[Rfam]
RNA sequence: UAUUAGGUUGGUGCAAAAGUAAUUGCAGGUUUUGCCAUUGCUUUCAGUGGCAAAACCUGCAAUUAUUUUUGCACUAACCUAGUA
Numbered sequence: 001u002a003u004u005a006g007g008u009u010g011g012u013g014c015a016a017a018a019g020u021a022a023u024u025g026c027a028g029g030u031u032u033u034g035c036c037a038u039u040g041c042u043u044u045c046a047g048u049g050g051c052a053a054a055a056c057c058u059g060c061a062a063u064u065a066u067u068u069u070u071g072c073a074c075u076a077a078c079c080u081a082g083u084a
Base pairs, nucleotide, nucleotide: 001084002083003082004081005080006079007078008077009076010075011074012073013072014071015070016069017068018067019066020065021064022063023062024061025060026059027058028057029056030055031054032053033052034051035050036049037048038047039046040045